[Rfam]
RNA sequence: CCUGCCACUGAUCAUCUCUUGCAGGCGUGGCUGCAGUGCCACGUUUGUGUCAUUUGAUGGCAGAGAGGAUAAGGUGAGGUCUUCCCCUGUGCUCUGACCCACGUGGGCUCCCAGGAUUGCUCAACAACCUGACAUU
Numbered sequence: 001c002c003u004g005c006c007a008c009u010g011a012u013c014a015u016c017u018c019u020u021g022c023a024g025g026c027g028u029g030g031c032u033g034c035a036g037u038g039c040c041a042c043g044u045u046u047g048u049g050u051c052a053u054u055u056g057a058u059g060g061c062a063g064a065g066a067g068g069a070u071a072a073g074g075u076g077a078g079g080u081c082u083u084c085c086c087c088u089g090u091g092c093u094c095u096g097a098c099c100c101a102c103g104u105g106g107g108c109u110c111c112c113a114g115g116a117u118u119g120c121u122c123a124a125c126a127a128c129c130u131g132a133c134a135u136u
Base pairs, nucleotide, nucleotide: 002063003062004061005060006059008056010054011053014050015049021048022047023046024045026043027042028041029040030039031038072130073129074128075127084119086115087114088113089112091108092107093106094105
The family of this 136-nucleotide RNA sequence from Formicarius rufipectus is "Small nucleolar RNA SNORA17". Rfam 15.1 lists 5,784 matches to the family in 673 species. From the family's description: snoRNA ACA 17 belongs to the H/ACA family of snoRNAs and is predicted to guide pseudouridylation of the 28S rRNA at positions U4659 and U4598. It shares the same host gene together with ACA43. NB This family has a high threshold value to exclude a large number of closely related sequences that do not appear to have conserved H and ACA boxes, and may be pseudogenes. Its family is annotated with nucleolus and RNA processing in the Gene Ontology. The source organism's lineage runs through Eukaryota, Gnathostomata, Theropoda, Formicariidae and Formicarius. It is annotated as an H/ACA-box small nucleolar RNA.